[Rfam]
RNA: RAGATH-18 RNA
RNA sequence: CCUUUGGAGUGUCGGACCAAACGAAAGUAGCUAUCAGCAAAAUCGGACACAAUGAACAAGGAA
Numbered sequence: 001c002c003u004u005u006g007g008a009g010u011g012u013c014g015g016a017c018c019a020a021a022c023g024a025a026a027g028u029a030g031c032u033a034u035c036a037g038c039a040a041a042a043u044c045g046g047a048c049a050c051a052a053u054g055a056a057c058a059a060g061g062a063a
Stems, first nucleotide, its partner, number of pairs: 001061004009050005022045003030038003